[Rfam]
RNA sequence: CGGGGAAACAAGCCCCUGUUGAGAUUGACUCUAGUCCGACUUUGUGAAAUGACUUGAAGGUGUAGUAUAAGUGGGAGCCAAAAGGCGAAAGUGAAAUAUCACUACUUUUAAUGUUAUUUUACUUAUUCCGUGGAUCGGAAGCGGGGCACUACCCCUCUUUUUGGACCCAAGGAUCGCUUCACAGGCCGAUCCAGGAUGAAGACAUUUUUAGGUGGGGAGUUUGGAUGGAGCGGCACAUAAGUUAAAAGAUAACACAGGUGUCCUAAGAUGAGCUCAACAAGAACAGAAAAUCUUGUGUGGAACAGAAGGGUAAAAGCUCAUUUGAUUCUGAUUUCCAGUACUAACACGAAUUAUGAAAGUAUGGCCUAACGAUCCUUUAGACCUUUGGAAUUCGAAGCUAGAGGUGUCACAAAAUUUACCAAAGGGAUAACUGGCUUGUGUAAGCCAAGCGUUUAUAGCGAUGUUUCUUUUUUAUCCUUCGAUGUCGACUCUUCCUAUCAUUGUGAAGCAGAAUUCACCAAGUGUUGGAUUGUUCACCUACCAAUAGGGAACGUGAGCUGGGUUUAGACCGUCCUAAGACAAGUUAGUUUUACCCUA
Numbered sequence: 001c002g003g004g005g006a007a008a009c010a011a012g013c014c015c016c017u018g019u020u021g022a023g024a025u026u027g028a029c030u031c032u033a034g035u036c037c038g039a040c041u042u043u044g045u046g047a048a049a050u051g052a053c054u055u056g057a058a059g060g061u062g063u064a065g066u067a068u069a070a071g072u073g074g075g076a077g078c079c080a081a082a083a084g085g086c087g088a089a090a091g092u093g094a095a096a097u098a099u100c101a102c103u104a105c106u107u108u109u110a111a112u113g114u115u116a117u118u119u120u121a122c123u124u125a126u127u128c129c130g131u132g133g134a135u136c137g138g139a140a141g142c143g144g145g146g147c148a149c150u151a152c153c154c155c156u157c158u159u160u161u162u163g164g165a166c167c168c169a170a171g172g173a174u175c176g177c178u179u180c181a182c183a184g185g186c187c188g189a190u191c192c193a194g195g196a197u198g199a200a201g202a203c204a205u206u207u208u209u210a211g212g213u214g215g216g217g218a219g220u221u222u223g224g225a226u227g228g229a230g231c232g233g234c235a236c237a238u239a240a241g242u243u244a245a246a247a248g249a250u251a252a253c254a255c256a257g258g259u260g261u262c263c264u265a266a267g268a269u270g271a272g273c274u275c276a277a278c279a280a281g282a283a284c285a286g287a288a289a290a291u292c293u294u295g296u297g298u299g300g301a302a303c304a305g306a307a308g309g310g311u312a313a314a315a316g317c318u319c320a321u322u323u324g325a326u327u328c329u330g331a332u333u334u335c336c337a338g339u340a341c342u343a344a345c346a347c348g349a350a351u352u353a354u355g356a357a358a359g360u361a362u363g364g365c366c367u368a369a370c371g372a373u374c375c376u377u378u379a380g381a382c383c384u385u386u387g388g389a390a391u392u393c394g395a396a397g398c399u400a401g402a403g404g405u406g407u408c409a410c411a412a413a414a415u416u417u418a419c420c421a422a423a424g425g426g427a428u429a430a431c432u433g434g435c436u437u438g439u440g441u442a443a444g445c446c447a448a449g450c451g452u453u454u455a456u457a458g459c460g461a462u463g464u465u466u467c468u469u470u471u472u473u474a475u476c477c478u479u480c481g482a483u484g485u486c487g488a489c490u491c492u493u494c495c496u497a498u499c500a501u502u503g504u505g506a507a508g509c510a511g512a513a514u515u516c517a518c519c520a521a522g523u524g525u526u527g528g529a530u531u532g533u534u535c536a537c538c539u540a541c542c543a544a545u546a547g548g549g550a551a552c553g554u555g556a557g558c559u560g561g562g563u564u565u566a567g568a569c570c571g572u573c574c575u576a577a578g579a580c581a582a583g584u585u586a587g588u589u590u591u592a593c594c595c596u597a
Stems, first nucleotide, its partner, number of pairs: 003596003007591002015425003020421002022417005028220004035212002038209002044122010054111002056108004070103005077086002126200003137192003143155004172187001174185002223236001224234001226232001237259002241255002262364002268321006274301002277296006302311002326350003332344002352361003375403006383397004434475001438472001440468001442466004449459002486561001487559001489557002491553001492550005499524002503518005526540003530536001567585003571580003